A member of the RNA family "glmS glucosamine-6-phosphate activated ribozyme aptamer" from Fontibacillus phaseoli, 240 nucleotides long. The match comes from Rfam's covariance-model search (82 bits). Pairs were carried over by alignment from the consensus structure, which is taken from published work. Gene Ontology terms of the family: catalytic activity and regulation of gene expression. The source organism's lineage runs through Bacteria, Bacillati, Caryophanales, Paenibacillaceae and Fontibacillus.
Nucleotides: 240
Stems, first nucleotide, its partner, number of pairs: 020123005132163005140152004164181006185230003189226003199216007
Number, partner (000 for none) and nucleotide at each position: 001000u002000a003000a004000g005000c006000a007000g008000u009000a010000u011000a012000a013000g014000c015000g016000c017000c018000a019000g020123a021122g022121c023120u024119u025000c026000a027000u028000u029000u030000c031000g032000c033000g034000c035000g036000u037000u038000g039000a040000a041000g042000u043000u044000a045000u046000c047000c048000g049000g050000a051000a052000g053000g054000g055000a056000a057000c058000a059000g060000g061000c062000a063000g064000a065000c066000a067000c068000a069000a070000u071000g072000u073000u074000g075000u076000u077000g078000u079000g080000u081000c082000u083000c084000g085000c086000c087000u088000g089000g090000a091000u092000a093000a094000g095000g096000c097000u098000g099000g100000a101000u102000g103000a104000g105000g106000a107000a108000a109000c110000g111000g112000c113000a114000a115000a116000u117000g118000c119024a120023a121022g122021c123020u124000g125000a126000c127000g128000a129000g130000g131000u132163g133162g134161a135160g136159g137000u138000g139000u140152u141151c142150g143149a144000g145000a146000u147000g148000u149143u150142c151141g152140g153000c154000g155000g156000g157000g158000g159136c160135c161134u162133c163132c164181c165180g166179g167178u168177g169176c170000c171000g172000c173000a174000u175000c176169g177168c178167a179166c180165c181164g182000u183000g184000a185230c186229c187228g188000a189226a190225a191224g192000g193000a194000c195000a196000a197000a198000a199216g200215g201214a202213a203212u204211g205210g206000g207000c208000g209000a210205c211204c212203g213202u214201u215200c216199c217000c218000a219000c220000a221000a222000a223000c224191c225190u226189u227000a228187c229186g230185g231000a232000c233000c234000g235000a236000u237000g238000u239000u240000a